Overview:
A member of the RNA family "Small nucleolar RNA sn2903" from Caenorhabditis elegans, 91 nucleotides long. The family's RNA type in Rfam is C/D-box small nucleolar RNA.

RNA sequence: GAGCGGUGAUGAAUGCACGUAUUGCUCUGACACCUCUUAUGUUAGCGGUAAAUUUCCGUGCCGCGAUGAGUCCACUAGGAUCUCUGAGCUC
Numbered sequence: 001g002a003g004c005g006g007u008g009a010u011g012a013a014u015g016c017a018c019g020u021a022u023u024g025c026u027c028u029g030a031c032a033c034c035u036c037u038u039a040u041g042u043u044a045g046c047g048g049u050a051a052a053u054u055u056c057c058g059u060g061c062c063g064c065g066a067u068g069a070g071u072c073c074a075c076u077a078g079g080a081u082c083u084c085u086g087a088g089c090u091c
Base pairs, nucleotide, nucleotide: 001091002090003089004088
The sequence is in the family's curated seed alignment.